[Rfam]
RNA sequence: UUGGCGUUAGUUUUGAACGGGUUUUGGUGUAUUUCAAUUGUGAAUCAGAUUGAAACCGUCCAAAACUGAGGCUGAU
Dot-bracket structure: ....(.((((((((..(((.((((((((....................)))))))))))..)))))))).).....
RNA: mir-957 microRNA precursor family
Organism: Megaselia scalaris